[Rfam]
RNA sequence: AUACUUACCUGGCAGGGGAGACACCGUGAUCACGAAGGCGGUUCACCCAAGACGAGGCUCGGUCAUUGCACUGAGGUUGGGUUGACUUUUGCGAAUUCCCCAAAUGUGGGAAUCUCGACUGCAUAAUUUCUGGUAGUGGGGCACUAAGUACGCGCUCUCCCCUG
Numbered sequence: 001a002u003a004c005u006u007a008c009c010u011g012g013c014a015g016g017g018g019a020g021a022c023a024c025c026g027u028g029a030u031c032a033c034g035a036a037g038g039c040g041g042u043u044c045a046c047c048c049a050a051g052a053c054g055a056g057g058c059u060c061g062g063u064c065a066u067u068g069c070a071c072u073g074a075g076g077u078u079g080g081g082u083u084g085a086c087u088u089u090u091g092c093g094a095a096u097u098c099c100c101c102a103a104a105u106g107u108g109g110g111a112a113u114c115u116c117g118a119c120u121g122c123a124u125a126a127u128u129u130c131u132g133g134u135a136g137u138g139g140g141g142c143a144c145u146a147a148g149u150a151c152g153c154g155c156u157c158u159c160c161c162c163u164g
Stems, first nucleotide, its partner, number of pairs: 012122004016048003020044002023042005049090004054086001056083003060079005092117003095113003099109002138162004143158001148153001
Shown here is a 164-nucleotide RNA from Triplophysa tibetana, a member of the family "U1 spliceosomal RNA". The organism belongs to Triplophysa, within Eukaryota. It scores 138 bits against the family's covariance model. The family's consensus secondary structure is taken from published work. Rfam 15.1 lists 40,184 matches to the family in 1,499 species. A reference for the family is Oubridge et al. (1994), "Crystal structure at 1.92 A resolution of the RNA-binding domain of the U1A spliceosomal protein complexed with an RNA hairpin", Nature.